[Rfam]
RNA sequence: UGGAGUUGCCGAGAAAUAAGACCCUCGAUUGUGAAAAAUACUAUCAUUGUAUAUGAUGGUAUAAAGCGCAAAAGUCUAGCUGAUAAGUAAGUUCUUCAUAAGAGGACAUUUCCAUUACGAAUUCAGUCGCAAACUGUAGAAUUAGCUACUCUACAAUUUAGUGAACGUUAGUAACGGUGUAAUUAAUAUAAUCUUUGGAAGGAUUAUUGUAUUACUAAAUAACUCCUC
Numbered sequence: 001u002g003g004a005g006u007u008g009c010c011g012a013g014a015a016a017u018a019a020g021a022c023c024c025u026c027g028a029u030u031g032u033g034a035a036a037a038a039u040a041c042u043a044u045c046a047u048u049g050u051a052u053a054u055g056a057u058g059g060u061a062u063a064a065a066g067c068g069c070a071a072a073a074g075u076c077u078a079g080c081u082g083a084u085a086a087g088u089a090a091g092u093u094c095u096u097c098a099u100a101a102g103a104g105g106a107c108a109u110u111u112c113c114a115u116u117a118c119g120a121a122u123u124c125a126g127u128c129g130c131a132a133a134c135u136g137u138a139g140a141a142u143u144a145g146c147u148a149c150u151c152u153a154c155a156a157u158u159u160a161g162u163g164a165a166c167g168u169u170a171g172u173a174a175c176g177g178u179g180u181a182a183u184u185a186a187u188a189u190a191a192u193c194u195u196u197g198g199a200a201g202g203a204u205u206a207u208u209g210u211a212u213u214a215c216u217a218a219a220u221a222a223c224u225c226c227u228c
Base pairs, nucleotide, nucleotide: 010027011026012025013024080126081125082124083123087118088117089116090115091107092106093105094104095103109201110200111199112198113197114196127164128163129162130161131159132158133157135155136154137153138152139151140150166176167175168174180214181213182212183211188207189206190205191204192203
This 228-nucleotide RNA belongs to the Rfam family "RAGATH-14 RNA".